[Rfam]
RNA sequence: GUGGCGGCGCGGGCCGUCCAGCCCCAGACGGCGUCGGCGCUGACGAGCGAGGACUCGCCGAGGUAGGCGCCGUCGGCGAGGACGCCGAGGACGGCCUCGUCCCCGUAGGGUCCUUCGCCGACCUGCUCGAUCCGGCCGUGCGCGAGGAGGUGCACGCGGUCGUUGGCGGCGCCGCCGGUCGCGAUGAUCUCGCCCGCCGCGUACUCCCGCUGCGUACAGCGGGACGCGAGCUCGGCCAGGGCGCCCUCGUCCUCGUAACCACGCAGUGCGGGGAGUUCGCCGAGCUCGGCGGGGAUGACCUCGACGCUCUGCCCCGUCUGGACGAAGGUGACGCGGCCGUCGCCCACGGAGUAGCUGAGCCUGCGGUUCACCCGGUACGUACCGCCCUGCACCUGCACCCACGGCAUCAUCCGCAGCAGCCACCGGGAGGUGAUCUCCUGCAUCUGCGGCGCGGACUUGGUGGUCGUGGCGAGGUUCCGCGCGGCGGCGGUACCGAGACUCUGCUGCGGUGCCUGGUCCG
Numbered sequence: 001g002u003g004g005c006g007g008c009g010c011g012g013g014c015c016g017u018c019c020a021g022c023c024c025c026a027g028a029c030g031g032c033g034u035c036g037g038c039g040c041u042g043a044c045g046a047g048c049g050a051g052g053a054c055u056c057g058c059c060g061a062g063g064u065a066g067g068c069g070c071c072g073u074c075g076g077c078g079a080g081g082a083c084g085c086c087g088a089g090g091a092c093g094g095c096c097u098c099g100u101c102c103c104c105g106u107a108g109g110g111u112c113c114u115u116c117g118c119c120g121a122c123c124u125g126c127u128c129g130a131u132c133c134g135g136c137c138g139u140g141c142g143c144g145a146g147g148a149g150g151u152g153c154a155c156g157c158g159g160u161c162g163u164u165g166g167c168g169g170c171g172c173c174g175c176c177g178g179u180c181g182c183g184a185u186g187a188u189c190u191c192g193c194c195c196g197c198c199g200c201g202u203a204c205u206c207c208c209g210c211u212g213c214g215u216a217c218a219g220c221g222g223g224a225c226g227c228g229a230g231c232u233c234g235g236c237c238a239g240g241g242c243g244c245c246c247u248c249g250u251c252c253u254c255g256u257a258a259c260c261a262c263g264c265a266g267u268g269c270g271g272g273g274a275g276u277u278c279g280c281c282g283a284g285c286u287c288g289g290c291g292g293g294g295a296u297g298a299c300c301u302c303g304a305c306g307c308u309c310u311g312c313c314c315c316g317u318c319u320g321g322a323c324g325a326a327g328g329u330g331a332c333g334c335g336g337c338c339g340u341c342g343c344c345c346a347c348g349g350a351g352u353a354g355c356u357g358a359g360c361c362u363g364c365g366g367u368u369c370a371c372c373c374g375g376u377a378c379g380u381a382c383c384g385c386c387c388u389g390c391a392c393c394u395g396c397a398c399c400c401a402c403g404g405c406a407u408c409a410u411c412c413g414c415a416g417c418a419g420c421c422a423c424c425g426g427g428a429g430g431u432g433a434u435c436u437c438c439u440g441c442a443u444c445u446g447c448g449g450c451g452c453g454g455a456c457u458u459g460g461u462g463g464u465c466g467u468g469g470c471g472a473g474g475u476u477c478c479g480c481g482c483g484g485c486g487g488c489g490g491u492a493c494c495g496a497g498a499c500u501c502u503g504c505u506g507c508g509g510u511g512c513c514u515g516g517u518c519c520g
Base pairs, nucleotide, nucleotide: 006399007398009396010395011394012393017391019389021337022336025333029330030329032327034325035324040320042318043317044316045315049313051242054239055238057236058235059234060233061232074120075119076118077117084112091106092105093104094103126230127229128228129227131224132223135220136219138217139216140215141214142213143212144211147208149206152204157201158200162198164196165195166194170186173183174182175181243305245303249299250298251297253295254294259291262288263287265286266285267284268280269279270278338351340349341348363385364384365383366382370380371379400440401439403437404436406434408432409431410430412427414425416424446485447484449482451480452479453478454477455476456474457473458472460470461469486519487518489513490512491511493509494508495507496505497504
Dot-bracket structure: .....((.((((....(.(.((..(...((.(.((....(.((((...(.(..((.(((((............((((......(......((((........)))).....)....)))).....((((.((..((.(((((((..(.(..(....((...(.(((...(..(((.....)))..).......))).).))..).).)..))))))).))..))..)))).))))).))..)(.(...(((.((....(..((.((((((.......)))...)))))..)..)).)))...).).......).)))).)...)).).))..)..))(.((......)).)...........((((...((.......)).))))...).).)))).))((.((.(.(((.(.(.(.......)).)..))).).)).)).....((.(.((((((((.((.......)).))).))))).).))((.(((.(((((......)).))).)))....)).